This 274-nucleotide RNA from Saimiri boliviensis belongs to the Rfam family "Mason-Pfizer monkey virus packaging signal". The match comes from Rfam's covariance-model search (104 bits). Rfam classes the family as a cis-regulatory element. The family's consensus secondary structure was predicted with PFOLD. The literature on the family includes a 2004 paper in Virus Res by Mustafa et al., "Mutational analysis of the predicted secondary RNA structure of the Mason-Pfizer monkey virus packaging signal". Taxonomically the source falls in Saimiri boliviensis (Eukaryota, Teleostomi, Primates, Platyrrhini). From the family's description: This family represents a group of sequences that are related to the Mason-Pfizer monkey virus (MPMV) packaging signal.
[Rfam]
RNA sequence: UGGCGCCCGAACAGGGACCCGAAGUAAGAGGGACACAGUGAGGGACGUCAUCGAAGCCGGCCGGAUUGAAGGAAGAAAUCCAGAGGAGUCGUCACCGCGGGAACCUGCUGCGGCCUUGCUCUCUGGUAAGUGGACGACGAUAUUAUGGGUCAGAAAAUUAGUAAGCAUGAGUUGUUUGUAGAAGAACUCAGCAUAGCAUUAAAGGCGCGAGGAGUAAAGGUGAAAGUAAACUGGUUAAUUAAAUAUUUUGAUUAUAUUAAGGAUGUUUGUCCCU
Numbered sequence: 001u002g003g004c005g006c007c008c009g010a011a012c013a014g015g016g017a018c019c020c021g022a023a024g025u026a027a028g029a030g031g032g033a034c035a036c037a038g039u040g041a042g043g044g045a046c047g048u049c050a051u052c053g054a055a056g057c058c059g060g061c062c063g064g065a066u067u068g069a070a071g072g073a074a075g076a077a078a079u080c081c082a083g084a085g086g087a088g089u090c091g092u093c094a095c096c097g098c099g100g101g102a103a104c105c106u107g108c109u110g111c112g113g114c115c116u117u118g119c120u121c122u123c124u125g126g127u128a129a130g131u132g133g134a135c136g137a138c139g140a141u142a143u144u145a146u147g148g149g150u151c152a153g154a155a156a157a158u159u160a161g162u163a164a165g166c167a168u169g170a171g172u173u174g175u176u177u178g179u180a181g182a183a184g185a186a187c188u189c190a191g192c193a194u195a196g197c198a199u200u201a202a203a204g205g206c207g208c209g210a211g212g213a214g215u216a217a218a219g220g221u222g223a224a225a226g227u228a229a230a231c232u233g234g235u236u237a238a239u240u241a242a243a244u245a246u247u248u249u250g251a252u253u254a255u256a257u258u259a260a261g262g263a264u265g266u267u268u269g270u271c272c273c274u
Stems, first nucleotide, its partner, number of pairs: 006032003015025001037048001038046002084124003087120002096112005131152002138147002158201001160199001161197002208250005214244002218236002221233002259274001261272004